[Rfam]
RNA sequence: CCUGCACCUAGAGCCUUUACAGGUGUGGUUGCUCGUUCACAUGCGUUUUAGGUGGCAGAGAGGAGACAGUCUAUGUCUGUGCUCAGUUUUCUGACCUAUGAACAUCUGAAAGAUUAACAGCCUAAUUAU
Numbered sequence: 001c002c003u004g005c006a007c008c009u010a011g012a013g014c015c016u017u018u019a020c021a022g023g024u025g026u027g028g029u030u031g032c033u034c035g036u037u038c039a040c041a042u043g044c045g046u047u048u049u050a051g052g053u054g055g056c057a058g059a060g061a062g063g064a065g066a067c068a069g070u071c072u073a074u075g076u077c078u079g080u081g082c083u084c085a086g087u088u089u090u091c092u093g094a095c096c097u098a099u100g101a102a103c104a105u106c107u108g109a110a111a112g113a114u115u116a117a118c119a120g121c122c123u124a125a126u127u128a129u
Stems, first nucleotide, its partner, number of pairs: 002058004007052005019046002024041005065126001068123002071120002074117001080112001083109004087104001089102003

The family of this 129-nucleotide RNA from Rattus norvegicus is "Small nucleolar RNA SNORA17". The organism belongs to Rattus, within Eukaryota. Rfam 15.1 lists 5,784 matches to the family in 673 species. From the family's description: snoRNA ACA 17 belongs to the H/ACA family of snoRNAs and is predicted to guide pseudouridylation of the 28S rRNA at positions U4659 and U4598. It shares the same host gene together with ACA43. The family's RNA type in Rfam is H/ACA-box small nucleolar RNA.